A member of the RNA family "Archaeal large subunit ribosomal RNA" from Acidianus hospitalis, 578 nucleotides of a longer RNA. The family's consensus secondary structure is taken from published work. Rfam's curators put it in the seed alignment. Lineage of the source: Archaea > Thermoproteati > Thermoprotei > Acidianus > Acidianus hospitalis.
RNA sequence: CCCCCUACACCGAGAGAAGACCCCGUGGAGCUUCACUGCAGCCUGGCGUUGGUUCCCGGGCGCUCAUGCGUAGAGUAGGUGGGAGGCGUCGAAGCCGCCUCUUCGGGGGCGGUGGAGCCGAAAGUGAAACACCACCCAUGAGCGCUCGAGAACCUAACCCCGAGAGGGGGACAGCGUCAGGUGGGCAGUUCGGCUGGGGCGGCACUCCCGCGAAAAGAUAACACGGGAGCCCAAAGGUCGGCUCAGGCGGUACAGGACGCCGCCGUAGAGUGCAAGGGCAAAAGCCGGCCUGACGAGUCCCUUCAAAGCACGGGGACUCGACGCGAAAGCGCGGCCUAGCGAACGCUCAUGCCCCCUCACAUGGGGGCUGGGCAUGUCAGAAAAGUUACCCCGGGGAUAACAGGGUCGUCGCGGGCGAGAGCUCCCAUCGACCCCGCGGUUUGCUUCAUCGAUGUCGGCUCUUCCCACCCUGGGGGUGCAGCUGCCCCCAAGGGUAGGGCUGCCCGCCCGUUAAAGGGGAACGUGAGCUGGGUUUAGACCGUCGCGAGACAGGUCGGACUCUAAGGGUAGGGGGUGCA
Numbered sequence: 001c002c003c004c005c006u007a008c009a010c011c012g013a014g015a016g017a018a019g020a021c022c023c024c025g026u027g028g029a030g031c032u033u034c035a036c037u038g039c040a041g042c043c044u045g046g047c048g049u050u051g052g053u054u055c056c057c058g059g060g061c062g063c064u065c066a067u068g069c070g071u072a073g074a075g076u077a078g079g080u081g082g083g084a085g086g087c088g089u090c091g092a093a094g095c096c097g098c099c100u101c102u103u104c105g106g107g108g109g110c111g112g113u114g115g116a117g118c119c120g121a122a123a124g125u126g127a128a129a130c131a132c133c134a135c136c137c138a139u140g141a142g143c144g145c146u147c148g149a150g151a152a153c154c155u156a157a158c159c160c161c162g163a164g165a166g167g168g169g170g171a172c173a174g175c176g177u178c179a180g181g182u183g184g185g186c187a188g189u190u191c192g193g194c195u196g197g198g199g200c201g202g203c204a205c206u207c208c209c210g211c212g213a214a215a216a217g218a219u220a221a222c223a224c225g226g227g228a229g230c231c232c233a234a235a236g237g238u239c240g241g242c243u244c245a246g247g248c249g250g251u252a253c254a255g256g257a258c259g260c261c262g263c264c265g266u267a268g269a270g271u272g273c274a275a276g277g278g279c280a281a282a283a284g285c286c287g288g289c290c291u292g293a294c295g296a297g298u299c300c301c302u303u304c305a306a307a308g309c310a311c312g313g314g315g316a317c318u319c320g321a322c323g324c325g326a327a328a329g330c331g332c333g334g335c336c337u338a339g340c341g342a343a344c345g346c347u348c349a350u351g352c353c354c355c356c357u358c359a360c361a362u363g364g365g366g367g368c369u370g371g372g373c374a375u376g377u378c379a380g381a382a383a384a385g386u387u388a389c390c391c392c393g394g395g396g397a398u399a400a401c402a403g404g405g406u407c408g409u410c411g412c413g414g415g416c417g418a419g420a421g422c423u424c425c426c427a428u429c430g431a432c433c434c435c436g437c438g439g440u441u442u443g444c445u446u447c448a449u450c451g452a453u454g455u456c457g458g459c460u461c462u463u464c465c466c467a468c469c470c471u472g473g474g475g476g477u478g479c480a481g482c483u484g485c486c487c488c489c490a491a492g493g494g495u496a497g498g499g500c501u502g503c504c505c506g507c508c509c510g511u512u513a514a515a516g517g518g519g520a521a522c523g524u525g526a527g528c529u530g531g532g533u534u535u536a537g538a539c540c541g542u543c544g545c546g547a548g549a550c551a552g553g554u555c556g557g558a559c560u561c562u563a564a565g566g567g568u569a570g571g572g573g574g575u576g577c578a
Base pairs, nucleotide, nucleotide: 001574002573003572004571005570006569007568008567010566011565014561015560022395023394024393025392027391028390029387030386031385032384033383035189036188037187038186042181043180044179045178046177047176048175051154052153053152054151055150057148058147059146060145061144062143063142064141065140066139067138068137078136079135080134081133082132085119086118087117097110098109099108100107101106158169159168160167161166192205193203194202195201206228207227208226209225210224231334232333237289238288239287240286241285242284243269244268246264247263248262249261250260251259270279271278294320295319296318297317298316299315300314301313302312322331324329345373346372347371348370349369351368353367354366355365356364404445405444406443408442409439410438411437412436413435414434415433419429420428456531457529458528459527460526461523462520463519464518465517466516469494470493473488474487475486476485477484497509498508499507500506537555538554539553540552541550542549543548